[Rfam]
RNA sequence: CGAGCCACCGAAUUGACACAACGUCCUGCAGCGAUGUUGUGCGACCUGCAGUGUCAACAUUCGGUGGAUCU
Numbered sequence: 001c002g003a004g005c006c007a008c009c010g011a012a013u014u015g016a017c018a019c020a021a022c023g024u025c026c027u028g029c030a031g032c033g034a035u036g037u038u039g040u041g042c043g044a045c046c047u048g049c050a051g052u053g054u055c056a057a058c059a060u061u062c063g064g065u066g067g068a069u070c071u
Stems, first nucleotide, its partner, number of pairs: 002070002005067002009063005020038006043055003